A member of the RNA family "MIR2629 microRNA precursor family" from Medicago truncatula, 72 nucleotides long.
Rfam links the family to the GO terms miRNA-mediated post-transcriptional gene silencing and RISC complex.

RNA sequence: UACCGAGGUUUUCCUCGACAGUUAACUGCAGCCGAAUUUGAAAUUUCUCGGCAGUUAACUACCGAGGGGUAU
Numbered sequence: 001u002a003c004c005g006a007g008g009u010u011u012u013c014c015u016c017g018a019c020a021g022u023u024a025a026c027u028g029c030a031g032c033c034g035a036a037u038u039u040g041a042a043a044u045u046u047c048u049c050g051g052c053a054g055u056u057a058a059c060u061a062c063c064g065a066g067g068g069g070u071a072u
Stems, first nucleotide, its partner, number of pairs: 012068002015065003020060010